[Rfam]
RNA sequence: UAGAGGAGGAAGGCAAAAUGCGAAGCAUAUUUUUGAAUGCCUUCCCACGACUUGCCGCCGAACCUUGUGUGAGGGGGCGUUACAUUAG
Number, nucleotide and partner (000 for none) at each position: 001u000002a000003g000004a000005g000006g000007a000008g045009g044010a043011a042012g041013g040014c000015a031016a030017a000018a028019u027020g026021c000022g000023a000024a000025g000026c020027a019028u018029a000030u016031u015032u000033u000034u000035g000036a000037a000038u000039g000040c013041c012042u011043u010044c009045c008046c000047a000048c000049g000050a000051c000052u000053u000054g078055c077056c076057g000058c074059c073060g000061a000062a070063c069064c000065u000066u000067g000068u000069g063070u062071g000072a000073g059074g058075g000076g056077g055078c054079g000080u000081u000082a000083c000084a000085u000086u000087a000088g000